[Rfam]
RNA sequence: UCGGCCCCGGUUCACGCGACGCGCACGGCGGAGCGACCCGGGCGCC
Numbered sequence: 001u002c003g004g005c006c007c008c009g010g011u012u013c014a015c016g017c018g019a020c021g022c023g024c025a026c027g028g029c030g031g032a033g034c035g036a037c038c039c040g041g042g043c044g045c046c
Stems, first nucleotide, its partner, number of pairs: 003046003007041004015035003020030003
RNA: L31-Actinobacteria ribosomal protein leader